RNA: Translational regulator of tfoXVC
Organism: Photobacterium aphoticum
RNA sequence: AUUCCAAUGGUUGGUGGUUCCCCCAUCAACCAGCAGCAAGCGAAGGUGUCCUUGACACCCGUGAUAUGGUCGAGAGGCCAUAUCACGUCAUUUUUUU
Numbered sequence: 001a002u003u004c005c006a007a008u009g010g011u012u013g014g015u016g017g018u019u020c021c022c023c024c025a026u027c028a029a030c031c032a033g034c035a036g037c038a039a040g041c042g043a044a045g046g047u048g049u050c051c052u053u054g055a056c057a058c059c060c061g062u063g064a065u066a067u068g069g070u071c072g073a074g075a076g077g078c079c080a081u082a083u084c085a086c087g088u089c090a091u092u093u094u095u096u097u
Base pairs, nucleotide, nucleotide: 009031010030011029012028013027014026015025016024017023033041034040045059046058047057048056049055050054060087061086062085063084064083065082066081067080068079069078070077071076